[Rfam]
RNA sequence: GGUCACUCCUCGAUUUAAAACACGGGAAUAAGGUUCCCGGCCUGUUCACUCAGAGGAAAGCUAUCAUGGCACUGAGCGUCGAAGAGAAAGCUGCAAUCGUAAGCGAAUACGCACGUGGCGAA
Numbered sequence: 001g002g003u004c005a006c007u008c009c010u011c012g013a014u015u016u017a018a019a020a021c022a023c024g025g026g027a028a029u030a031a032g033g034u035u036c037c038c039g040g041c042c043u044g045u046u047c048a049c050u051c052a053g054a055g056g057a058a059a060g061c062u063a064u065c066a067u068g069g070c071a072c073u074g075a076g077c078g079u080c081g082a083a084g085a086g087a088a089a090g091c092u093g094c095a096a097u098c099g100u101a102a103g104c105g106a107a108u109a110c111g112c113a114c115g116u117g118g119c120g121a122a
Stems, first nucleotide, its partner, number of pairs: 007028001009026004049076005055070001